[Rfam]
RNA sequence: CCCAGAGGUAUUGAUAGGUGGAGUAAGCACCAAUUUGCUGCUCACUUGAAUUACACCAACCUGCGCGGAUGCGCAGGUUUUUUUU
Numbered sequence: 001c002c003c004a005g006a007g008g009u010a011u012u013g014a015u016a017g018g019u020g021g022a023g024u025a026a027g028c029a030c031c032a033a034u035u036u037g038c039u040g041c042u043c044a045c046u047u048g049a050a051u052u053a054c055a056c057c058a059a060c061c062u063g064c065g066c067g068g069a070u071g072c073g074c075a076g077g078u079u080u081u082u083u084u085u
Stems, first nucleotide, its partner, number of pairs: 017057004021047001026042004031037001059078008
This 85-nucleotide RNA from Atlantibacter hermannii belongs to the Rfam family "OmrA-B family". A search with the family's covariance model found it, with a score of 88 bits. A reference for the family is Guillier and Gottesman (2006), "Remodelling of the Escherichia coli outer membrane by two small regulatory RNAs", Mol Microbiol. Rfam 15.1 lists 153 matches to the family in 128 species.